[Rfam]
RNA: mir-8/mir-141/mir-200 microRNA precursor family
Organism: Cyprinus carpio
RNA sequence: GCAGUCAUCUUACCGGACAGUGCUGGACUGUGUAUCUGUUUUCUAACACUGUCUGGUAACGAUGUUUGU
Numbered sequence: 001g002c003a004g005u006c007a008u009c010u011u012a013c014c015g016g017a018c019a020g021u022g023c024u025g026g027a028c029u030g031u032g033u034a035u036c037u038g039u040u041u042u043c044u045a046a047c048a049c050u051g052u053c054u055g056g057u058a059a060c061g062a063u064g065u066u067u068g069u
Stems, first nucleotide, its partner, number of pairs: 002068003006064004010059013024045004